Archaeal small subunit ribosomal RNA: a 360-nucleotide part of an RNA from Candidatus Psychracetigena formicireducens. Lineage of the source: Bacteria > Bacillati > Candidatus Lithacetigenota > Candidatus Psychracetigena. Pairs were carried over by alignment from the consensus structure, which is taken from published work. The family has 86 seed sequences and 709 matches in Rfam 15.1.
RNA sequence: GGUCUAAAACAUCCGUAGCUUGUUUAGUAAGUUUCUUGUGAAAUCUGGCAUCUCAAGUGUCAGGCGGGCAGGGGGUACUACUAAGCUAGAGACCGGAAGAUGUAAGGAGUACAUUCAAGGUAAUGGUUAAAUAUGUUAAUCUUGAAUGGACUAACAAUUGGCGAAGGCACCUUACAAGAACGGAUCUGACAGUGAGGGAUGAAGGCCAAGGGCGCAAAACGGAUUAGAUACCCGUGUAGUCUUGGCAGUAAACACUGCUCACUAAACAUCGGGAUCUCUUCGGGAGAUUUCGGUGCUGAAGCGAAGGCGAAGAGUGAGCUACCUGGGAAGUAUAGUCGCAAGAUCGAAACUUAAAGGAAU
Numbered sequence: 001g002g003u004c005u006a007a008a009a010c011a012u013c014c015g016u017a018g019c020u021u022g023u024u025u026a027g028u029a030a031g032u033u034u035c036u037u038g039u040g041a042a043a044u045c046u047g048g049c050a051u052c053u054c055a056a057g058u059g060u061c062a063g064g065c066g067g068g069c070a071g072g073g074g075g076u077a078c079u080a081c082u083a084a085g086c087u088a089g090a091g092a093c094c095g096g097a098a099g100a101u102g103u104a105a106g107g108a109g110u111a112c113a114u115u116c117a118a119g120g121u122a123a124u125g126g127u128u129a130a131a132u133a134u135g136u137u138a139a140u141c142u143u144g145a146a147u148g149g150a151c152u153a154a155c156a157a158u159u160g161g162c163g164a165a166g167g168c169a170c171c172u173u174a175c176a177a178g179a180a181c182g183g184a185u186c187u188g189a190c191a192g193u194g195a196g197g198g199a200u201g202a203a204g205g206c207c208a209a210g211g212g213c214g215c216a217a218a219a220c221g222g223a224u225u226a227g228a229u230a231c232c233c234g235u236g237u238a239g240u241c242u243u244g245g246c247a248g249u250a251a252a253c254a255c256u257g258c259u260c261a262c263u264a265a266a267c268a269u270c271g272g273g274a275u276c277u278c279u280u281c282g283g284g285a286g287a288u289u290u291c292g293g294u295g296c297u298g299a300a301g302c303g304a305a306g307g308c309g310a311a312g313a314g315u316g317a318g319c320u321a322c323c324u325g326g327g328a329a330g331u332a333u334a335g336u337c338g339c340a341a342g343a344u345c346g347a348a349a350c351u352u353a354a355a356g357g358a359a360u
Base pairs, nucleotide, nucleotide: 001323002322003321009320011200012199013198014197016194018193019192020191022086023085024084025083026082027081028080030079031078032075033074034073035072036071037070038069039068045063046062047061048060049059050058051057090187091186092185093183094182095181101176102175103174104173105172106171107170108152109151112148113147114146115145116144117143118142119141123134124133125132158169161168162167205246206245207244208243209242210241214240215239219235220234221233222232257319258318259317260316261315262314265297267295268294269293270292271291272290273289274288275287276286277285278284301308302307325352326351327350335344336343337342
Its family is annotated with structural constituent of ribosome and ribosome in the Gene Ontology.